[Rfam]
RNA sequence: AUAAAAUAAAAUGUUUAGGAAAAAAAUUCUUGUGCUAACAUCAGCUUGUCUCUGGUUUCGGCCUUGAGAUUUAAGUUAAACUAAAACACUACAUUA
Numbered sequence: 001a002u003a004a005a006a007u008a009a010a011a012u013g014u015u016u017a018g019g020a021a022a023a024a025a026a027u028u029c030u031u032g033u034g035c036u037a038a039c040a041u042c043a044g045c046u047u048g049u050c051u052c053u054g055g056u057u058u059c060g061g062c063c064u065u066g067a068g069a070u071u072u073a074a075g076u077u078a079a080a081c082u083a084a085a086a087c088a089c090u091a092c093a094u095u096a
Base pairs, nucleotide, nucleotide: 032089033088034087036085043077044076045075046074047073048072049069050068051067052066
About this RNA
Small nucleolar RNA snoR97: a 96-nucleotide sequence from Brassica carinata. Rfam 15.1 lists 862 matches to the family in 223 species. Rfam classes the family as an H/ACA-box small nucleolar RNA. The base pairs follow the family's consensus structure, which was predicted with WAR. Rfam links the family to the GO terms RNA processing and nucleolus. It scores 45 bits against the family's covariance model.